[Rfam]
RNA sequence: AACUAAAGGGGAGCUAUGAACGCCGUCUUUUAACCCGGUCACCUGGGACGGCUGGAGCAGUGGUGAGACCGACCCCAGGAGGC
Numbered sequence: 001a002a003c004u005a006a007a008g009g010g011g012a013g014c015u016a017u018g019a020a021c022g023c024c025g026u027c028u029u030u031u032a033a034c035c036c037g038g039u040c041a042c043c044u045g046g047g048a049c050g051g052c053u054g055g056a057g058c059a060g061u062g063g064u065g066a067g068a069c070c071g072a073c074c075c076c077a078g079g080a081g082g083c
Base pairs, nucleotide, nucleotide: 003081004080008076009075010074011073013058014057022052023051024050025049026048027047028046037070038069039066040065041064042063043062
Shown here is an 83-nucleotide RNA from Deinococcus deserti, a member of the family "c-di-GMP-II-GAG riboswitch aptamer". The base pairs follow the family's consensus structure, which is taken from published work. The family is grouped with related families in Rfam's "c-di-GMP_II riboswitch clan". For this family Rfam cites "Bioinformatic analysis of riboswitch structures uncovers variant classes with altered ligand specificity" (Weinberg et al., Proc Natl Acad Sci U S A, 2017).